[Rfam]
RNA sequence: CAGGCACCUAAGCUGUCUGUCGUAGCAGCAGUUUAAACAGGAGGUGCUGGCAGCAAGCAAUCUCAUCCCCUUUGGGGGCUAGAGCUGUGCCCCUCAAAGUGAAUUGGAAGGCUCUCUACCC
Numbered sequence: 001c002a003g004g005c006a007c008c009u010a011a012g013c014u015g016u017c018u019g020u021c022g023u024a025g026c027a028g029c030a031g032u033u034u035a036a037a038c039a040g041g042a043g044g045u046g047c048u049g050g051c052a053g054c055a056a057g058c059a060a061u062c063u064c065a066u067c068c069c070c071u072u073u074g075g076g077g078g079c080u081a082g083a084g085c086u087g088u089g090c091c092c093c094u095c096a097a098a099g100u101g102a103a104u105u106g107g108a109a110g111g112c113u114c115u116c117u118a119c120c121c
Stems, first nucleotide, its partner, number of pairs: 003048007011033002013028004059113001061111003070099005075093005
A member of the RNA family "Small nucleolar RNA SNORA68" from Myotis lucifugus, 121 nucleotides long. It scores 58 bits against the family's covariance model. Gene Ontology terms of the family: nucleolus and RNA processing. The literature on the family includes a 1997 paper in Genes Dev by Ganot et al., "The family of box ACA small nucleolar RNAs is defined by an evolutionarily conserved secondary structure and ubiquitous sequence elements essential for RNA accumulation". Rfam describes the family as follows. U68 is a member of the H/ACA class of small nucleolar RNAs (snoRNAs) which act as guides in the the modification of uridines to pseudouridines.